mir-181 microRNA precursor family: an 82-nucleotide sequence from Acipenser ruthenus. NCBI's taxonomy places the organism under Eukaryota, Chordata, Actinopteri, Acipenserinae, Acipenser. Pairs were carried over by alignment from the consensus structure, which was predicted with PFOLD.
RNA sequence: UUGCUUCAGUGAACAUUCAACGCUGUCGGUGAGUUUAAGAUGGGAAAAAAACCAUCGACCGUUGAUUGUACCCUGCAGCCAG
Numbered sequence: 001u002u003g004c005u006u007c008a009g010u011g012a013a014c015a016u017u018c019a020a021c022g023c024u025g026u027c028g029g030u031g032a033g034u035u036u037a038a039g040a041u042g043g044g045a046a047a048a049a050a051a052c053c054a055u056c057g058a059c060c061g062u063u064g065a066u067u068g069u070a071c072c073c074u075g076c077a078g079c080c081a082g
Base pairs, nucleotide, nucleotide: 001082002081003080004078005077007075008074014068015067017065018064019063020062021061022060025059026058027057028056029055030054031053033052034051035050036049